[Rfam]
RNA sequence: CUGCCUCGGAGAACAUUCAACGCUGUCGGUGAGUUUGGUAUGGAUCACGUAAAAACCAUCGACCGUUGAUUGUGCCCCGUGGCUCG
Numbered sequence: 001c002u003g004c005c006u007c008g009g010a011g012a013a014c015a016u017u018c019a020a021c022g023c024u025g026u027c028g029g030u031g032a033g034u035u036u037g038g039u040a041u042g043g044a045u046c047a048c049g050u051a052a053a054a055a056c057c058a059u060c061g062a063c064c065g066u067u068g069a070u071u072g073u074g075c076c077c078c079g080u081g082g083c084u085c086g
Base pairs, nucleotide, nucleotide: 001086003084004082005081007079008078014072015071017069018068019067020066021065022064025063026062027061028060029059030058031057033056034055035054036053
Dot-bracket structure: (.(((.((.....((.((((((..(((((((.((((................))))))))))))))))).)).....)).)).).)

Rfam assigns this 86-nucleotide RNA sequence from Scophthalmus maximus to the family "mir-181 microRNA precursor family".
Its family is annotated with RISC complex and miRNA-mediated post-transcriptional gene silencing in the Gene Ontology.
Pairs were carried over by alignment from the consensus structure, which was predicted with PFOLD.